[Rfam]
RNA sequence: ACAAUGAUACUUCUGAACGUUCAGGCUGCCAUCGAAAAAGGACAGCUGGUGAAAUUCCCAUGA
Numbered sequence: 001a002c003a004a005u006g007a008u009a010c011u012u013c014u015g016a017a018c019g020u021u022c023a024g025g026c027u028g029c030c031a032u033c034g035a036a037a038a039a040g041g042a043c044a045g046c047u048g049g050u051g052a053a054a055u056u057c058c059c060a061u062g063a
Base pairs, nucleotide, nucleotide: 012060013024014023015022016021026045027044028043030041032039048058049057
Dot-bracket structure: ...........(((((....)))).(((.(.(......).).)))..((.......)).)...